About this RNA:
Shown here is a 138-nucleotide sequence from Durio zibethinus, a member of the family "mir-393 microRNA precursor family". The match comes from Rfam's covariance-model search (64 bits). On this family, see Kruszka et al., J Plant Physiol 2012: "Role of microRNAs and other sRNAs of plants in their changing environments".
[Rfam]
RNA sequence: GAUGGAAAAUUCCGAAGGGAUCGCAUGAUCCAAUGAGUGAACUGAAUCAAAAAGAGCUCUUAAAAAACAACCCAAUUAAUGAUUUCGUUCAGGAAUCCAUGAACAUUAGAUCAAUGCGAUCCCUUUGGAGCUCUCCAC
Numbered sequence: 001g002a003u004g005g006a007a008a009a010u011u012c013c014g015a016a017g018g019g020a021u022c023g024c025a026u027g028a029u030c031c032a033a034u035g036a037g038u039g040a041a042c043u044g045a046a047u048c049a050a051a052a053a054g055a056g057c058u059c060u061u062a063a064a065a066a067a068c069a070a071c072c073c074a075a076u077u078a079a080u081g082a083u084u085u086c087g088u089u090c091a092g093g094a095a096u097c098c099a100u101g102a103a104c105a106u107u108a109g110a111u112c113a114a115u116g117c118g119a120u121c122c123c124u125u126u127g128g129a130g131c132u133c134u135c136c137a138c
Stems, first nucleotide, its partner, number of pairs: 003137004008132001010130012023117003026113005